[Rfam]
RNA: Mammalian CPEB3 ribozyme
RNA sequence: ACAAGUUCACGGCCACAGCAGAAGUGCUCAUAGUACAGCUCUGUCAUUUUCUGACGAAUCUGUGAAGUCUGCU
Numbered sequence: 001a002c003a004a005g006u007u008c009a010c011g012g013c014c015a016c017a018g019c020a021g022a023a024g025u026g027c028u029c030a031u032a033g034u035a036c037a038g039c040u041c042u043g044u045c046a047u048u049u050u051c052u053g054a055c056g057a058a059u060c061u062g063u064g065a066a067g068u069c070u071g072c073u
Base pairs, nucleotide, nucleotide: 011041012039013038017073018072019071020070021069022068024036025035026034045062046061049058050057051056